[Rfam]
Shown here is a 69-nucleotide RNA from Danio rerio, a member of the family "mir-139 microRNA precursor family".
RNA sequence: CUGUAUUCUACAGUGCAUGUGUCUCCAGUGUUUCUAUGGCGACUGGGGAGGCAGCGCUGUUGGAAUAAC
Dot-bracket structure: .....((((((((.((.(((.((((((((............)))))))).))))).)))).))))....
Its family is annotated with RISC complex and miRNA-mediated post-transcriptional gene silencing in the Gene Ontology.